[Rfam]
RNA sequence: GUAGGGAGUGUAAACAUCCUACACUCUCAGCUGUGAACUUGCAUGGGGCUGGGAGAGGGAUGUUUACUCUCACUUC
Numbered sequence: 001g002u003a004g005g006g007a008g009u010g011u012a013a014a015c016a017u018c019c020u021a022c023a024c025u026c027u028c029a030g031c032u033g034u035g036a037a038c039u040u041g042c043a044u045g046g047g048g049c050u051g052g053g054a055g056a057g058g059g060a061u062g063u064u065u066a067c068u069c070u071c072a073c074u075u076c
Base pairs, nucleotide, nucleotide: 003074004073006071008069010067011066012065013064014063015062016061017060018059019058020057024055025054026053027052028051029050030049031048032047

Rfam assigns this 76-nucleotide RNA sequence from Erpetoichthys calabaricus to the family "mir-30 microRNA precursor family". The base pairs follow the family's consensus structure, which was predicted with PFOLD. The source organism's lineage runs through Eukaryota, Metazoa, Deuterostomia, Craniata and Erpetoichthys. Its family is annotated with gene silencing by miRNA and RISC complex in the Gene Ontology. It scores 69 bits against the family's covariance model. Rfam's curators write: This family consists of the mammalian microRNA (miRNA) precursor mir-30a. Animal miRNAs are transcribed as ~70nt precursors and subsequently processed by the Dicer enzyme to give a ~22nt product. In this case the mature sequence comes from both the 3' (miR-30) and 5' (mir-97-6) arms of the precursor. The extents of the hairpin precursors are not generally known and are estimated based on hairpin prediction.